[Rfam]
The family of this 35-nucleotide sequence from Camelus ferus is "Iron response element I".
The family's RNA type in Rfam is cis-regulatory element.
RNA sequence: CUGCCUCUUGUUUCAACAGUGUUUGGAGGGAGCAG
Numbered sequence: 001c002u003g004c005c006u007c008u009u010g011u012u013u014c015a016a017c018a019g020u021g022u023u024u025g026g027a028g029g030g031a032g033c034a035g
Stems, first nucleotide, its partner, number of pairs: 001035004006031003012027005017021001
A search with the family's covariance model found it, with a score of 37 bits. For this family Rfam cites "Structured RNA upstream of insect cap distal iron responsive elements enhances iron regulatory protein-mediated control of translation" (Nichol and Winzerling, Insect Biochem Mol Biol, 2002).